[Rfam]
RNA sequence: GGAGGCGGGCAGGCGCCUGGUGGCCCUCACGGUCUUCAACACCGAUGUGGCCGGGAACCCCGGUCAGGCGGGUUCGAUUCCCGUACGCCUCC
Dot-bracket structure: (((((((.(..((.(((....))).))..((((.......))))...(((((.........)))))..((((.......))))).)))))))
RNA: Selenocysteine transfer RNA